Rfam assigns this 149-nucleotide RNA sequence from Serratia ficaria to the family "Salmonella enterica Typhi npcRNA 44". Pairs were carried over by alignment from the consensus structure, which was predicted with CMfinder. It is annotated as a non-coding RNA gene.
RNA sequence: CUUUAACAAUCUGGAACAAGCUGAAAAUUGAAACAUGACGGCUGAAACUUGUCCCUCCGUAGAAAUAUUGGGAUAAGGAGUAACCCGUCAUAGAGUCUCUCAAAUGUUUGCAAUGCGAAGUGUCGAUUAUUUAUAAAAGACGCCUUCGG
Numbered sequence: 001c002u003u004u005a006a007c008a009a010u011c012u013g014g015a016a017c018a019a020g021c022u023g024a025a026a027a028u029u030g031a032a033a034c035a036u037g038a039c040g041g042c043u044g045a046a047a048c049u050u051g052u053c054c055c056u057c058c059g060u061a062g063a064a065a066u067a068u069u070g071g072g073a074u075a076a077g078g079a080g081u082a083a084c085c086c087g088u089c090a091u092a093g094a095g096u097c098u099c100u101c102a103a104a105u106g107u108u109u110g111c112a113a114u115g116c117g118a119a120g121u122g123u124c125g126a127u128u129a130u131u132u133a134u135a136a137a138a139g140a141c142g143c144c145u146u147c148g149g
Stems, first nucleotide, its partner, number of pairs: 020111002023109003027105003034093001036090006116148003120144001122141003
A search with the family's covariance model found it, with a score of 66 bits.
Lineage of the source: Bacteria > Pseudomonadati > Gammaproteobacteria > Yersiniaceae > Serratia.